RNA sequence: AAGCAACACUCUGUGGCAGAUGAUCAAAACCGUCUGACACAAUCUGAGCUUGUUACAGCAACAAGGUUUAACUUAUUCCGAUGCUCUCUUCUAGGGGACAAGCCGUUAUACAGACUUAGAUGGU
Numbered sequence: 001a002a003g004c005a006a007c008a009c010u011c012u013g014u015g016g017c018a019g020a021u022g023a024u025c026a027a028a029a030c031c032g033u034c035u036g037a038c039a040c041a042a043u044c045u046g047a048g049c050u051u052g053u054u055a056c057a058g059c060a061a062c063a064a065g066g067u068u069u070a071a072c073u074u075a076u077u078c079c080g081a082u083g084c085u086c087u088c089u090u091c092u093a094g095g096g097g098a099c100a101a102g103c104c105g106u107u108a109u110a111c112a113g114a115c116u117u118a119g120a121u122g123g124u
Stems, first nucleotide, its partner, number of pairs: 009048003012041004017036006064117006074110003079105002082102001085098004